[Rfam]
RNA sequence: GGCCUUUGUGUUGCCCAUUUAUUCCUGUCCAGAAUGGAUGUGGUGUCAAAAAAGACAAACAGUAAUUCUUGCUCAAACUGGUUUAGGGAGCUGGUUAUGUACCUUCUUCCUCCCUGUUUUUGGACAAAAACCCCC
Numbered sequence: 001g002g003c004c005u006u007u008g009u010g011u012u013g014c015c016c017a018u019u020u021a022u023u024c025c026u027g028u029c030c031a032g033a034a035u036g037g038a039u040g041u042g043g044u045g046u047c048a049a050a051a052a053a054g055a056c057a058a059a060c061a062g063u064a065a066u067u068c069u070u071g072c073u074c075a076a077a078c079u080g081g082u083u084u085a086g087g088g089a090g091c092u093g094g095u096u097a098u099g100u101a102c103c104u105u106c107u108u109c110c111u112c113c114c115u116g117u118u119u120u121u122g123g124a125c126a127a128a129a130a131c132c133c134c135c
Stems, first nucleotide, its partner, number of pairs: 002056001004054004009048002012045004016040008069127003072123002075120003084116005090109001093104002
RNA: Small nucleolar RNA SNORA13
Organism: Cyanoderma ruficeps